RNA sequence: GAGCUAAUGAUGAUAAAUGUUAUAUAUUUUACCGAUUUUAGCGAGGUUUUAUCAAUGAUCCAAAUGUUACUCACACUUGAGCCU
Numbered sequence: 001g002a003g004c005u006a007a008u009g010a011u012g013a014u015a016a017a018u019g020u021u022a023u024a025u026a027u028u029u030u031a032c033c034g035a036u037u038u039u040a041g042c043g044a045g046g047u048u049u050u051a052u053c054a055a056u057g058a059u060c061c062a063a064a065u066g067u068u069a070c071u072c073a074c075a076c077u078u079g080a081g082c083c084u
Stems, first nucleotide, its partner, number of pairs: 001084001003082003

Shown here is an 84-nucleotide sequence from Papaver somniferum, a member of the family "Small nucleolar RNA R11/Z151". For this family Rfam cites "Identification of 66 box C/D snoRNAs in Arabidopsis thaliana: extensive gene duplications generated multiple isoforms predicting new ribosomal RNA 2'-O-methylation sites" (Barneche et al., J Mol Biol, 2001). The match comes from Rfam's covariance-model search (53 bits).